[Rfam]
RNA: DUF805b RNA
Organism: Phnomibacter ginsenosidimutans
RNA sequence: AAGCAGGAAGCCGAAAAUGCAUUUUUAGAGUAGGCA
Dot-bracket structure: ..(((....[[[.....)))............]]].
Numbered sequence: 001a002a003g004c005a006g007g008a009a010g011c012c013g014a015a016a017a018u019g020c021a022u023u024u025u026u027a028g029a030g031u032a033g034g035c036a
Stems, first nucleotide, its partner, number of pairs: 003020003010035003